[Rfam]
About this RNA:
This 85-nucleotide sequence from Caenorhabditis angaria belongs to the Rfam family "mir-44 microRNA precursor family". The literature on the family includes a 2009 paper in Genome Res by de Wit et al., "Repertoire and evolution of miRNA genes in four divergent nematode species". The source organism's lineage runs through Eukaryota, Nematoda, Rhabditoidea, Peloderinae and Caenorhabditis. Pairs were carried over by alignment from the consensus structure, which was predicted with RNAalifold.
RNA sequence: CCUUCUCCGAGCUGGAUGUUCUCCUUAGUCAUACAGACUCAUCGUAACUCGAUAUGACUAGAGACACAUUCAGCUUGGCGCUGCG
Number, nucleotide and partner (000 for none) at each position: 001c000002c000003u000004u000005c080006u000007c078008c077009g076010a000011g000012c073013u072014g071015g070016a069017u068018g067019u066020u000021c000022u064023c063024c000025u000026u000027a059028g058029u057030c056031a055032u054033a053034c000035a000036g000037a000038c000039u000040c000041a000042u000043c000044g000045u000046a000047a000048c000049u000050c000051g000052a000053u033054a032055u031056g030057a029058c028059u027060a000061g000062a000063g023064a022065c000066a019067c018068a017069u016070u015071c014072a013073g012074c000075u000076u009077g008078g007079c000080g005081c000082u000083g000084c000085g000